[Rfam]
Description
Rfam assigns this 132-nucleotide sequence from Salinisphaera shabanensis to the family "RtT RNA". It is annotated as a cis-regulatory element. NCBI's taxonomy places the organism under Bacteria, Pseudomonadota, Gammaproteobacteria, Salinisphaeraceae, Salinisphaera shabanensis. Rfam's curators write: This family represents a bacterial cis-regulatory element known as RtT RNA. The exact function of RtT is unknown although it is thought that it may be involved in changing the cellular response in relation to amino acid starvation. The match comes from Rfam's covariance-model search (52 bits).

RNA sequence: AGAAAGGCCGGACCGAGGAGGGUUUGAACCGAGCGGUUCGACGAGGGCGCGGAGCGGCCGAGAACGGUCGCGUGACGCGACCGGCCCGUAGGGUGAGCGCCGAAGGCGCGAAUAAUCCUCCUCCCUCCACCA
Numbered sequence: 001a002g003a004a005a006g007g008c009c010g011g012a013c014c015g016a017g018g019a020g021g022g023u024u025u026g027a028a029c030c031g032a033g034c035g036g037u038u039c040g041a042c043g044a045g046g047g048c049g050c051g052g053a054g055c056g057g058c059c060g061a062g063a064a065c066g067g068u069c070g071c072g073u074g075a076c077g078c079g080a081c082c083g084g085c086c087c088g089u090a091g092g093g094u095g096a097g098c099g100c101c102g103a104a105g106g107c108g109c110g111a112a113u114a115a116u117c118c119u120c121c122u123c124c125c126u127c128c129a130c131c132a
Stems, first nucleotide, its partner, number of pairs: 015123007023115001030095002034092001037090001039088002045055001065083002068080004